Shown here is a 245-nucleotide RNA sequence from Asbolus verrucosus, a member of the family "RNase MRP".
RNA sequence: CGGUUCUUCUAAGCCUAACUUUCGGGGUAACAUACAGAGUUUUCAAUGACUCCAAAUAACCCUGGGGAAGGUCCUCGGAUCUGUGGUAGAAAGUAUCACUGAGUUUACUCAGUAAGGCACAAGCAACGCUGCGGAGGGUGGGUUAACCUGAAAGUGGUAUGUUUGUGUUGUUGGUCAUAGCACAGGUUAUGUUUAGGGUCGCAUGUAGGAUGCGAUAACUUAACGGGGCCCAUUCUGGAAGAACU
Numbered sequence: 001c002g003g004u005u006c007u008u009c010u011a012a013g014c015c016u017a018a019c020u021u022u023c024g025g026g027g028u029a030a031c032a033u034a035c036a037g038a039g040u041u042u043u044c045a046a047u048g049a050c051u052c053c054a055a056a057u058a059a060c061c062c063u064g065g066g067g068a069a070g071g072u073c074c075u076c077g078g079a080u081c082u083g084u085g086g087u088a089g090a091a092a093g094u095a096u097c098a099c100u101g102a103g104u105u106u107a108c109u110c111a112g113u114a115a116g117g118c119a120c121a122a123g124c125a126a127c128g129c130u131g132c133g134g135a136g137g138g139u140g141g142g143u144u145a146a147c148c149u150g151a152a153a154g155u156g157g158u159a160u161g162u163u164u165g166u167g168u169u170g171u172u173g174g175u176c177a178u179a180g181c182a183c184a185g186g187u188u189a190u191g192u193u194u195a196g197g198g199u200c201g202c203a204u205g206u207a208g209g210a211u212g213c214g215a216u217a218a219c220u221u222a223a224c225g226g227g228g229c230c231c232a233u234u235c236u237g238g239a240a241g242a243a244c245u
Base pairs, nucleotide, nucleotide: 002245003244004243005242006241007240008239009238010237011236014197015196016195017194018192019191022065023064024063025062026061027060028059037052038051039050040049041048070230071229073228074227075226076225085097086096087095088094098113099112100111101110102109103108115168117166121164122163123162124161125160141148142147199215200214201213202212203211204210
Rfam classes the family as a ribozyme. The organism belongs to Asbolus, within Eukaryota. The base pairs follow the family's consensus structure, which is taken from published work.